[Rfam]
FMN riboswitch aptamer (RFN element): a 128-nucleotide sequence from Lachnospiraceae bacterium A4. Taxonomically the source falls in Lachnospiraceae (Bacteria, Bacillati, Bacillota, Lachnospirales). It scores 112 bits against the family's covariance model.
RNA sequence: ACAAAUCUUCGGGGCAGGGUGCGAUUCCCUACCGGUGGUAAAGUCCGCGACCCUGUCUGCAGACGCAGGCAGGCUGAUAUGGUGCGAUUCCAUAACCGACAGUAAAGUCUGGAUGAGAGAAGAUCUAU
Number, nucleotide and partner (000 for none) at each position: 001a000002c000003a126004a000005a124006u123007c122008u121009u120010c119011g000012g000013g000014g000015c000016a000017g029018g028019g027020u000021g000022c000023g000024a000025u000026u000027c019028c018029c017030u000031a108032c107033c098034g097035g048036u047037g046038g045039u000040a000041a000042a000043g096044u095045c038046c037047g036048c035049g000050a000051c000052c073053c072054u000055g000056u000057c000058u000059g000060c000061a000062g000063a000064c000065g000066c000067a000068g000069g000070c000071a000072g053073g052074c000075u000076g000077a000078u094079a093080u092081g091082g090083u000084g000085c000086g000087a000088u000089u000090c082091c081092a080093u079094a078095a044096c043097c034098g033099a000100c111101a110102g109103u000104a000105a000106a000107g032108u031109c102110u101111g100112g000113a000114u000115g000116a000117g000118a000119g010120a009121a008122g007123a006124u005125c000126u003127a000128u000